[Rfam]
RNA sequence: AUGGAGAACUGCAUACAUUUUCGUAUAAUCUCAGGAAUCGGCCUGGGAGUCUCUACGAGGUCACCGUAAAUGAUCUGGCUACGAAAAGCAGGAAGAGGAAG
Numbered sequence: 001a002u003g004g005a006g007a008a009c010u011g012c013a014u015a016c017a018u019u020u021u022c023g024u025a026u027a028a029u030c031u032c033a034g035g036a037a038u039c040g041g042c043c044u045g046g047g048a049g050u051c052u053c054u055a056c057g058a059g060g061u062c063a064c065c066g067u068a069a070a071u072g073a074u075c076u077g078g079c080u081a082c083g084a085a086a087a088g089c090a091g092g093a094a095g096a097g098g099a100a101g
Stems, first nucleotide, its partner, number of pairs: 018087008029048007058076006

Source information: Shown here is a 101-nucleotide RNA sequence from Paenibacillus nasutitermitis, a member of the family "Purine riboswitch aptamer". Rfam 15.1 lists 4,097 matches to the family in 1,411 species. It scores 69 bits against the family's covariance model. The source organism's lineage runs through Bacteria, Bacillati, Bacillota, Caryophanales and Paenibacillus. The family's consensus secondary structure is taken from published work.